About this RNA
Bacterial RNase P class A: a 342-nucleotide RNA sequence from Clostridium intestinale. It scores 311 bits against the family's covariance model.
[Rfam]
RNA sequence: CGAGUAAGCCAGUCAAUCGCUGCUGACUUACGUCAGGAGAGGAAAGUCCGAGCUCCGUAGAGCAGGGUGCUGGUUAACUGCCAGUGGAGGUGACUCUAAGGAAAGUGCAACAGAGAUAUACCGCCCAAGUUUUUGGGUAAGGGUGGAAAGGUGAGGUAAGAGCUCACCAGCAUAUAGGUGACUAUAUGGCUAUGUAAACCCCACCUGGAGCAAGACCGAAUAGAGAGGCAAAUGGGGCUGCUCGUCCCGCCUCUGGGUGUGUCGCUUGAGCCUAUUGGGAACAAUAGGCCUAGAUAGAUGAUUGACUAAUACAGAACUCGGCUUAUAGACUUAUCUCGCUAU
Number, nucleotide and partner (000 for none) at each position: 001c338002g337003a336004g335005u333006a332007a331008g330009c000010c328011a326012g306013u305014c304015a303016a302017u301018c300019g000020c039021u038022g000023c036024u035025g034026a033027c032028u000029u000030a000031c000032g027033u026034c025035a024036g023037g000038a021039g020040a000041g000042g000043a000044a324045a323046g322047u000048c321049c320050g319051a318052g317053c210054u209055c208056c207057g000058u000059a000060g243061a242062g241063c240064a000065g206066g205067g204068u203069g202070c084071u083072g082073g081074u080075u000076a000077a000078c000079u000080g074081c073082c072083a071084g070085u099086g097087g096088a095089g094090g000091u000092g000093a000094c089095u088096c087097u086098a000099a085100g201101g200102a000103a000104a000105g199106u198107g195108c194109a193110a000111c000112a000113g000114a000115g000116a000117u000118a000119u000120a000121c142122c141123g138124c137125c136126c135127a134128a133129g000130u000131u000132u000133u128134u127135g126136g125137g124138u123139a000140a000141g122142g121143g000144u000145g000146g000147a000148a000149a000150g168151g167152u166153g165154a164155g163156g000157u000158a000159a000160g000161a000162g000163c155164u154165c153166a152167c151168c150169a000170g190171c188172a187173u186174a185175u184176a183177g182178g000179u000180g000181a000182c177183u176184a175185u174186a173187u172188g171189g000190c170191u000192a000193u109194g108195u107196a000197a000198a106199c105200c101201c100202c069203a068204c067205c066206u065207g056208g055209a054210g053211c000212a000213a000214g263215a262216c261217c000218g000219a000220a000221u000222a000223g000224a254225g253226a252227g251228g250229c249230a000231a000232a000233u000234g248235g247236g246237g245238c244239u000240g063241c062242u061243c060244g238245u237246c236247c235248c234249g229250c228251c227252u226253c225254u224255g000256g000257g000258u000259g000260u000261g216262u215263c214264g000265c000266u000267u000268g000269a000270g289271c288272c287273u286274a285275u284276u283277g282278g000279g000280a000281a000282c277283a276284a275285u274286a273287g272288g271289c270290c000291u000292a000293g000294a000295u000296a000297g000298a000299u000300g018301a017302u016303u015304g014305a013306c012307u000308a000309a000310u000311a000312c000313a000314g000315a000316a000317c052318u051319c050320g049321g048322c046323u045324u044325a000326u011327a000328g010329a000330c008331u007332u006333a005334u000335c004336u003337c002338g001339c000340u000341a000342u000